The record is a 169-nucleotide RNA sequence from Chloroflexus aurantiacus, which matches "M-box riboswitch aptamer (ykoK leader)" in Rfam. The source organism's lineage runs through Bacteria, Chloroflexota, Chloroflexineae, Chloroflexaceae and Chloroflexus aurantiacus.
RNA sequence: UUCGCUCCUUGGUAGGCGCGGUCUGCAUACAAACACAGGUUGCUGCUCCGACCCGUCGAAAGACGCUUAGGGGUAUACAGUAUAGCUCGGCUUAAGGGUUAUGCUAAAGCAACUGUAGCGCUGCUACUACGUUGUAUGCGGGCUUAAGCUCAACCGAAGAGGGAGCAAA
Numbered sequence: 001u002u003c004g005c006u007c008c009u010u011g012g013u014a015g016g017c018g019c020g021g022u023c024u025g026c027a028u029a030c031a032a033a034c035a036c037a038g039g040u041u042g043c044u045g046c047u048c049c050g051a052c053c054c055g056u057c058g059a060a061a062g063a064c065g066c067u068u069a070g071g072g073g074u075a076u077a078c079a080g081u082a083u084a085g086c087u088c089g090g091c092u093u094a095a096g097g098g099u100u101a102u103g104c105u106a107a108a109g110c111a112a113c114u115g116u117a118g119c120g121c122u123g124c125u126a127c128u129a130c131g132u133u134g135u136a137u138g139c140g141g142g143c144u145u146a147a148g149c150u151c152a153a154c155c156g157a158a159g160a161g162g163g164a165g166c167a168a169a
Base pairs, nucleotide, nucleotide: 005165006164007163008162009161010160011155012154013095015150016149017148020144021143022142025139026138027137028136029135030134031133032132039113040112041111042110043109045074046073047072048071049070054065055064056063057062080104081103082102083101086098087097088096115127116126117125
M-box riboswitch, also know as ykoK leader is described as a metaloregulatory RNA that sense divalent metals and function as a genetic control element of genes related to divalent metal transport in bacteria. It was first reported upstream of the B.subtilis ykoK gene and genes with related functions in other bacteria.